Group II catalytic intron D1-D4-3: a 155-nucleotide sequence from Rossellomorea vietnamensis. The pairing is the family consensus, mapped onto this sequence. The source organism's lineage runs through Bacteria, Bacillati, Bacillota, Bacilli and Rossellomorea.
RNA sequence: UCCGGGGCGACCCGGAAUCUGAAGGAAGCGGGCGGCAAACCUCCGGUCCGAGGAACACGAAUCUCAUAUAAGGCUUGUUGCACUGGAUAAGUCUGCAAUACAAGAUGAAGUCCGAACUGUCGAAGGUGCAGAAAGUAAAUGAGGCGGAUAGAUGG
Numbered sequence: 001u002c003c004g005g006g007g008c009g010a011c012c013c014g015g016a017a018u019c020u021g022a023a024g025g026a027a028g029c030g031g032g033c034g035g036c037a038a039a040c041c042u043c044c045g046g047u048c049c050g051a052g053g054a055a056c057a058c059g060a061a062u063c064u065c066a067u068a069u070a071a072g073g074c075u076u077g078u079u080g081c082a083c084u085g086g087a088u089a090a091g092u093c094u095g096c097a098a099u100a101c102a103a104g105a106u107g108a109a110g111u112c113c114g115a116a117c118u119g120u121c122g123a124a125g126g127u128g129c130a131g132a133a134a135g136u137a138a139a140u141g142a143g144g145c146g147g148a149u150a151g152a153u154g155g
Stems, first nucleotide, its partner, number of pairs: 001016006043155003046149005062144006073136003078131006085113004091106004